This 83-nucleotide sequence from Pelomonas sp. Root1444 belongs to the Rfam family "SAH (S-adenosyl-L-homocysteine) riboswitch aptamer". The family has 52 seed sequences and 1,354 matches in Rfam 15.1. A search with the family's covariance model found it, with a score of 39 bits.
[Rfam]
RNA sequence: CCUGCCGAGGGGUGCUGCGACGGACGGCCCUGGAGCCUCCGCCACGCUCGGUGGGAACGCUGGUUCAAGGGCGCCCUUUGUGA
Numbered sequence: 001c002c003u004g005c006c007g008a009g010g011g012g013u014g015c016u017g018c019g020a021c022g023g024a025c026g027g028c029c030c031u032g033g034a035g036c037c038u039c040c041g042c043c044a045c046g047c048u049c050g051g052u053g054g055g056a057a058c059g060c061u062g063g064u065u066c067a068a069g070g071g072c073g074c075c076c077u078u079u080g081u082g083a
Stems, first nucleotide, its partner, number of pairs: 002054007021041004026036001
Dot-bracket structure: .(((((((............((((.(.........).))))......))))))).............................